This 74-nucleotide sequence from Roseospira visakhapatnamensis belongs to the Rfam family "Makes More Granules Regulator RNA (mmgR)".
Pairs were carried over by alignment from the consensus structure.
Rfam describes the family as follows. SuhB later renamed mmgR (makes more granules regulator) was a putative non-coding RNA found multiple times in the Agrobacterium tumefaciens genome and related alpha-proteobacteria.
The family's RNA type in Rfam is small RNA.
RNA sequence: CCGUGUUGUGUAUCUUGGACGUUUCCUCCCUAAACUUGGGCCGUGCUAAAGCGCGGCCCCUUUUUUUUGGGGUC
Numbered sequence: 001c002c003g004u005g006u007u008g009u010g011u012a013u014c015u016u017g018g019a020c021g022u023u024u025c026c027u028c029c030c031u032a033a034a035c036u037u038g039g040g041c042c043g044u045g046c047u048a049a050a051g052c053g054c055g056g057c058c059c060c061u062u063u064u065u066u067u068u069g070g071g072g073u074c
Base pairs, nucleotide, nucleotide: 001018002017038059039058040057041056042055043054044053045052046051